[Rfam]
RNA sequence: GGCGAUAAAUUGCGAUGUGCAAUAGAUGCAGCGGACCCGGGGGCGGUACCCGGCAGCUCCACCAUAUCUCCCGGAUUUCCGGGCGUUUUGAAGGGGCUGAACUAGGAUCGACGUGCGUUGAAAAGCAUUGUUUUUGCCCGGCAUGGAUAAGCCGUUAAAUGGUUCAAAACUCAUAAGUGCAAACGAUAACGAAGCACUUGCUCUCGCAGCGUAA
Numbered sequence: 001g002g003c004g005a006u007a008a009a010u011u012g013c014g015a016u017g018u019g020c021a022a023u024a025g026a027u028g029c030a031g032c033g034g035a036c037c038c039g040g041g042g043g044c045g046g047u048a049c050c051c052g053g054c055a056g057c058u059c060c061a062c063c064a065u066a067u068c069u070c071c072c073g074g075a076u077u078u079c080c081g082g083g084c085g086u087u088u089u090g091a092a093g094g095g096g097c098u099g100a101a102c103u104a105g106g107a108u109c110g111a112c113g114u115g116c117g118u119u120g121a122a123a124a125g126c127a128u129u130g131u132u133u134u135u136g137c138c139c140g141g142c143a144u145g146g147a148u149a150a151g152c153c154g155u156u157a158a159a160u161g162g163u164u165c166a167a168a169a170c171u172c173a174u175a176a177g178u179g180c181a182a183a184c185g186a187u188a189a190c191g192a193a194g195c196a197c198u199u200g201c202u203c204u205c206g207c208a209g210c211g212u213a214a
Stems, first nucleotide, its partner, number of pairs: 001138005015128004027117003031114003037053005054099007139154004
Annotation:
Rfam assigns this 214-nucleotide RNA sequence from Sphingorhabdus profundilacus to the family "permuted transfer-messenger RNA". The family's RNA type in Rfam is non-coding RNA gene. The match comes from Rfam's covariance-model search (144 bits). Pairs were carried over by alignment from the consensus structure, which is taken from published work. Its family is annotated with RNA catabolic process in the Gene Ontology. For this family Rfam cites "Phylogenetic analysis of tmRNA secondary structure" (Williams and Bartel, RNA, 1996). About the family: Bacterial tmRNA, also known as 10Sa RNA or SsrA, is named for its dual tRNA and mRNA-like properties. Lineage of the source: Bacteria > Pseudomonadota > Alphaproteobacteria > Sphingomonadales > Sphingorhabdus.